[Rfam]
RNA sequence: CUCUUAUCAAGAGGGGUGGAGGGACCGGCCCUGUGAAGCCCCGGCAACCAGCCUGCUCAGGCAGGCCAGGUGCCAAUGCCGGCAGAAGCGCUUGCUUCUGGACGAUGAGAG
Numbered sequence: 001c002u003c004u005u006a007u008c009a010a011g012a013g014g015g016g017u018g019g020a021g022g023g024a025c026c027g028g029c030c031c032u033g034u035g036a037a038g039c040c041c042c043g044g045c046a047a048c049c050a051g052c053c054u055g056c057u058c059a060g061g062c063a064g065g066c067c068a069g070g071u072g073c074c075a076a077u078g079c080c081g082g083c084a085g086a087a088g089c090g091c092u093u094g095c096u097u098c099u100g101g102a103c104g105a106u107g108a109g110a111g
Stems, first nucleotide, its partner, number of pairs: 001111008013042005021031003025082004043074004048070002051066004078103001083100006
Rfam assigns this 111-nucleotide RNA sequence from Ardenticatena maritima to the family "SAM riboswitch aptamer (S box leader)". A search with the family's covariance model found it, with a score of 95 bits.